A member of the RNA family "ylbH leader" from Saliterribacillus persicus, 118 nucleotides long. Lineage of the source: Bacteria > Bacillati > Bacillota > Bacilli > Saliterribacillus. On this family, see Barrick et al., Proc Natl Acad Sci U S A 2004: "New RNA motifs suggest an expanded scope for riboswitches in bacterial genetic control".

[Rfam]
Nucleotides: 118
Base pairs, nucleotide, nucleotide: 011037012036013035014034015033016032017031018030019029038066039065040064041063042062078115079114080113081112083111084110085109086108089106090105091104092103
Number, partner (000 for none) and nucleotide at each position: 001000a002000a003000a004000a005000g006000a007000a008000a009000a010000u011037g012036c013035c014034u015033g016032c017031a018030g019029c020000a021000a022000a023000u024000u025000a026000a027000g028000c029019g030018c031017u032016g033015c034014a035013g036012g037011c038066c039065c040064u041063u042062u043000u044000u045000a046000u047000a048000u049000a050000c051000a052000u053000a054000a055000a056000a057000a058000g059000g060000u061000a062042a063041a064040g065039g066038g067000a068000g069000a070000g071000g072000a073000g074000a075000a076000a077000c078115c079114g080113g081112a082000g083111g084110a085109a086108g087000a088000a089106c090105u091104u092103a093000u094000g095000g096000g097000g098000a099000a100000a101000u102000g103092u104091a105090a106089g107000c108086c109085u110084u111083c112081u113080c114079c115078g116000u117000a118000a
This family is a putative regulatory RNA structure that is found upstream of the ylbH gene in B. subtilis and related low GC Gram-positive bacteria.